[Rfam]
RNA: c-di-GMP-I riboswitch aptamer
RNA sequence: GUUCACUGAGGGCAAACUCGUUGAAAAGCGAGGACGCAAAGCCUCCGGCCUAAAGCGCGCAAGCGUUAUGGUAGCGGGGUUGCCAAG
Numbered sequence: 001g002u003u004c005a006c007u008g009a010g011g012g013c014a015a016a017c018u019c020g021u022u023g024a025a026a027a028g029c030g031a032g033g034a035c036g037c038a039a040a041g042c043c044u045c046c047g048g049c050c051u052a053a054a055g056c057g058c059g060c061a062a063g064c065g066u067u068a069u070g071g072u073a074g075c076g077g078g079g080u081u082g083c084c085a086a087g
Base pairs, nucleotide, nucleotide: 012037013036017032018031019030020029021028022027040081041080042079043078045077046076047075048072049071050070055066056065057064058063
Dot-bracket structure: ...........((...((((((....))))))...))..((((.((((((....((((....))))...)))..)))))))......